Small nucleolar RNA SNORA73 family: a 203-nucleotide sequence from Pipistrellus kuhlii. Its family is annotated with nucleolus and RNA processing in the Gene Ontology. The match comes from Rfam's covariance-model search (175 bits). From the family's description: U17 (SNORA73A and SNORA73B) also known as E1 belongs to the H/ACA class of small nucleolar RNAs (snoRNAs). Vertebrate U17 is intron-encoded and ranges in length from 200-230 nucleotides, longer than most snoRNAs. A reference for the family is Enright et al. (1996), "5'ETS rRNA processing facilitated by four small RNAs: U14, E3, U17, and U3", RNA. It is annotated as an H/ACA-box small nucleolar RNA.

[Rfam]
RNA sequence: CCAACAUGGAUACCCUGGAGGCCAGUCUCCCUGGGCUCUGUCCAGGUGGCUUAGGGGAGCAUAGGGCUCUGCCCCGUGAUAUACAGUCCCUUUCCACAACAUUGGAGAGAAAGCCGAGCUUUGAGUCUGCGCCUGCAUACUCCUACAACUUCUCAGAGUCCUGUGGACGAUGACUAAGGAGACAAACCAUGUAGGAAACAUCU
Numbered sequence: 001c002c003a004a005c006a007u008g009g010a011u012a013c014c015c016u017g018g019a020g021g022c023c024a025g026u027c028u029c030c031c032u033g034g035g036c037u038c039u040g041u042c043c044a045g046g047u048g049g050c051u052u053a054g055g056g057g058a059g060c061a062u063a064g065g066g067c068u069c070u071g072c073c074c075c076g077u078g079a080u081a082u083a084c085a086g087u088c089c090c091u092u093u094c095c096a097c098a099a100c101a102u103u104g105g106a107g108a109g110a111a112a113g114c115c116g117a118g119c120u121u122u123g124a125g126u127c128u129g130c131g132c133c134u135g136c137a138u139a140c141u142c143c144u145a146c147a148a149c150u151u152c153u154c155a156g157a158g159u160c161c162u163g164u165g166g167a168c169g170a171u172g173a174c175u176a177a178g179g180a181g182a183c184a185a186a187c188c189a190u191g192u193a194g195g196a197a198a199c200a201u202c203u
Base pairs, nucleotide, nucleotide: 001105002104003103004102007099008043009042010041011040012039013035014034015033017030018029019028020027046097047096048095049094055090056089057088058087059084061082062081063080064077132195133194134193135192136191137190138189149181150180151179152178153177158168159167160166161165